[Rfam]
RNA sequence: GAGGGGGUAUCUGAAAACCCGUAAAAAGAGUAGGAA
Numbered sequence: 001g002a003g004g005g006g007g008u009a010u011c012u013g014a015a016a017a018c019c020c021g022u023a024a025a026a027a028g029a030g031u032a033g034g035a036a
Base pairs, nucleotide, nucleotide: 003020004019005018010035011034012033

Description: The family of this 36-nucleotide sequence is "DUF805b RNA". The base pairs follow the family's consensus structure, which is taken from published work. The family's RNA type in Rfam is cis-regulatory element.